[Rfam]
RNA sequence: AGUAAGGAUAGAGGUGCAGUAACCAUGAGUACUCAUGUGGAGGAGAAUGAGCUCUGAAGAAGCAUGGGAAAAGGGGAAACUGCCGAAGUGGAUGGAGCCUCAUUCUCCUGAAGCUGGUUCUGUUUUUGAAUAAAAUUCAGGACUGUCAUAUAGGAGACUAUAUGGAGGGCUAUCUAAUGC
Numbered sequence: 001a002g003u004a005a006g007g008a009u010a011g012a013g014g015u016g017c018a019g020u021a022a023c024c025a026u027g028a029g030u031a032c033u034c035a036u037g038u039g040g041a042g043g044a045g046a047a048u049g050a051g052c053u054c055u056g057a058a059g060a061a062g063c064a065u066g067g068g069a070a071a072a073g074g075g076g077a078a079a080c081u082g083c084c085g086a087a088g089u090g091g092a093u094g095g096a097g098c099c100u101c102a103u104u105c106u107c108c109u110g111a112a113g114c115u116g117g118u119u120c121u122g123u124u125u126u127u128g129a130a131u132a133a134a135a136u137u138c139a140g141g142a143c144u145g146u147c148a149u150a151u152a153g154g155a156g157a158c159u160a161u162a163u164g165g166a167g168g169g170c171u172a173u174c175u176a177a178u179g180c
Stems, first nucleotide, its partner, number of pairs: 006175006016083005023076002032068007087115003094108004116144007124135003146165007

A member of the RNA family "Lysine riboswitch aptamer" from Virgibacillus sp. MSP4-1, 180 nucleotides long. Rfam's curators write: Riboswitches are metabolite binding domains within certain messenger RNAs that serve as precision sensors for their corresponding targets. The source organism's lineage runs through Bacteria, Bacillati, Bacillota, Bacilli and Virgibacillus.